[Rfam]
RNA sequence: AACAGGACUGCUGUAAGGGAGUGCUUUGCGCGCGGGCGUCAACCAGCU
Numbered sequence: 001a002a003c004a005g006g007a008c009u010g011c012u013g014u015a016a017g018g019g020a021g022u023g024c025u026u027u028g029c030g031c032g033c034g035g036g037c038g039u040c041a042a043c044c045a046g047c048u
Base pairs, nucleotide, nucleotide: 009038010037011036012035021033022032023031024030